[Rfam]
Source information: A member of the RNA family "Metazoan signal recognition particle RNA" from Neomonachus schauinslandi, 300 nucleotides long. The family's RNA type in Rfam is non-coding RNA gene. Its family is annotated with SRP-dependent cotranslational protein targeting to membrane, signal sequence recognition and signal recognition particle, endoplasmic reticulum targeting in the Gene Ontology. Pairs were carried over by alignment from the consensus structure, which is taken from published work. It scores 155 bits against the family's covariance model. The source organism's lineage runs through Eukaryota, Deuterostomia, Eutheria, Phocidae and Neomonachus. For this family Rfam cites "Kinship in the SRP RNA family" (Rosenblad et al., RNA Biol, 2009). The signal recognition particle (SRP) is a universally conserved ribonucleoprotein.
RNA sequence: GCCGGGUGCGGUGGCGCGUGCCUGUAGUCCCAGCUACUCGGGAGGCUGAGGCAGGAGGAUCGCUUGAGCCCAGGAGUUCUGGGCUGUAGUGCGCUAUGCCGAUCAGGUGUCCGCACUAAGUUUGGCAUCAAUAUGGUGGCCUCCCGGGAGCGGGGGACCACCAGGUUGCCUAAGGAGGGGUGAACCGGCCCAGGUUGGAAACGGAGCAUGUCAAAACUCCCGUGCUGAUCGAAUGCAGAUGGCUGACUCUGAGCCCAGACAGCAAAUAUUAGCACUCGUGCUAAUUUCUCUCUGCCCUCA
Numbered sequence: 001g002c003c004g005g006g007u008g009c010g011g012u013g014g015c016g017c018g019u020g021c022c023u024g025u026a027g028u029c030c031c032a033g034c035u036a037c038u039c040g041g042g043a044g045g046c047u048g049a050g051g052c053a054g055g056a057g058g059a060u061c062g063c064u065u066g067a068g069c070c071c072a073g074g075a076g077u078u079c080u081g082g083g084c085u086g087u088a089g090u091g092c093g094c095u096a097u098g099c100c101g102a103u104c105a106g107g108u109g110u111c112c113g114c115a116c117u118a119a120g121u122u123u124g125g126c127a128u129c130a131a132u133a134u135g136g137u138g139g140c141c142u143c144c145c146g147g148g149a150g151c152g153g154g155g156g157a158c159c160a161c162c163a164g165g166u167u168g169c170c171u172a173a174g175g176a177g178g179g180g181u182g183a184a185c186c187g188g189c190c191c192a193g194g195u196u197g198g199a200a201a202c203g204g205a206g207c208a209u210g211u212c213a214a215a216a217c218u219c220c221c222g223u224g225c226u227g228a229u230c231g232a233a234u235g236c237a238g239a240u241g242g243c244u245g246a247c248u249c250u251g252a253g254c255c256c257a258g259a260c261a262g263c264a265a266a267u268a269u270u271a272g273c274a275c276u277c278g279u280g281c282u283a284a285u286u287u288c289u290c291u292c293u294g295c296c297c298u299c300a
Base pairs, nucleotide, nucleotide: 001046002045003044004023005022006021007020008019009018010017028043029042030041048299049298050297051296054293055292056291057290059289067282068281069280071278073276074275079272080271081270082269085266087264090261091260094258095257098254099253103252104251105250106249107248109247110246111242112241116238117237119234120230122228123227124226125225126224127223128222129168130167131166132165134163135162136161137160138159139158141156142155143154144153145152146151169175170174177220178219179218180217181216187212188211189210195204196203197202